[Rfam]
RNA sequence: GUAAAGAGACCUACUGCGAAGCAGGUUUUUACUAUACUAGAUUCGCCUCACGCUCUCCUCGCCAAAUUUGAGCGUGGGGCUUUUU
Numbered sequence: 001g002u003a004a005a006g007a008g009a010c011c012u013a014c015u016g017c018g019a020a021g022c023a024g025g026u027u028u029u030u031a032c033u034a035u036a037c038u039a040g041a042u043u044c045g046c047c048u049c050a051c052g053c054u055c056u057c058c059u060c061g062c063c064a065a066a067u068u069u070g071a072g073c074g075u076g077g078g079g080c081u082u083u084u085u
Stems, first nucleotide, its partner, number of pairs: 005030008016022002045080011059066001
Dot-bracket structure: ....((((((((...((...))))))))))..............(((((((((((...(......)...))))))))))).....
Overview
Shown here is an 85-nucleotide RNA from Streptococcus pyogenes, a member of the family "S. pyogenes small RNA 779816". It scores 83 bits against the family's covariance model. Taxonomically the source falls in Streptococcus pyogenes serotype M1 (Bacteria, Bacillota, Bacilli, Streptococcus pyogenes). The literature on the family includes a 2016 paper in RNA Biol by Le Rhun et al., "RNA sequencing uncovers antisense RNAs and novel small RNAs in Streptococcus pyogenes".